Shown here is a 122-nucleotide RNA from Piliocolobus tephrosceles, a member of the family "Small nucleolar RNA SNORA26". By type it is an H/ACA-box small nucleolar RNA. The family has 76 seed sequences and 1,943 matches in Rfam 15.1. Rfam links the family to the GO terms nucleolus and RNA processing. The base pairs follow the family's consensus structure, which was predicted with RNAalifold. Its Rfam clan is "SNORA27 clan". Taxonomically the source falls in Piliocolobus (Eukaryota, Chordata, Dipnotetrapodomorpha, Haplorrhini). For this family Rfam cites "RNomics: an experimental approach that identifies 201 candidates for novel, small, non-messenger RNAs in mouse" (Huttenhofer et al., EMBO J, 2001). The snoRNA HBI-6 belong to the H/ACA family of snoRNAs, guiding the pseudouridylation of position U4522 if the 28S rRNA. HBI-6 is the human orthologue of mouse MBI-6 snoRNA. The match comes from Rfam's covariance-model search (121 bits).

RNA sequence: GUGCCCUUUCAAGGUUGACGCAGGGCUUUAAGGGGCUAACACAGAAGGGUUAAGGAAGUCUCCACAAACCCCAGAGAAGAGAUUGUAAAGCUCCUCUUUAGAUCCUUUCUGGAGUCACACCU
Numbered sequence: 001g002u003g004c005c006c007u008u009u010c011a012a013g014g015u016u017g018a019c020g021c022a023g024g025g026c027u028u029u030a031a032g033g034g035g036c037u038a039a040c041a042c043a044g045a046a047g048g049g050u051u052a053a054g055g056a057a058g059u060c061u062c063c064a065c066a067a068a069c070c071c072c073a074g075a076g077a078a079g080a081g082a083u084u085g086u087a088a089a090g091c092u093c094c095u096c097u098u099u100a101g102a103u104c105c106u107u108u109c110u111g112g113a114g115u116c117a118c119a120c121c122u
Base pairs, nucleotide, nucleotide: 003050004049005048006047007046008045009044014040015039016038017037019035021032058116060114061113062112063111064110071101073099074098075097076096077095079093080092081091083090084089